A member of the RNA family "MAT2A 3'UTR stem loop D" from Chrysemys picta, 44 nucleotides long. The source organism's lineage runs through Eukaryota, Teleostomi, Archelosauria, Cryptodira and Chrysemys picta. On this family, see Parker et al., Genome Res 2011: "New families of human regulatory RNA structures identified by comparative analysis of vertebrate genomes". It scores 34 bits against the family's covariance model.
RNA sequence: UCUGAAGGGCUGGUGUAGCUACAGAGAAGCCAGCUUCCUUCAGA
Numbered sequence: 001u002c003u004g005a006a007g008g009g010c011u012g013g014u015g016u017a018g019c020u021a022c023a024g025a026g027a028a029g030c031c032a033g034c035u036u037c038c039u040u041c042a043g044a
Base pairs, nucleotide, nucleotide: 001044002043003042004041005040007037008036009035010033011032012031013030014029
Dot-bracket structure: (((((.((((((((..............))))).)))..)))))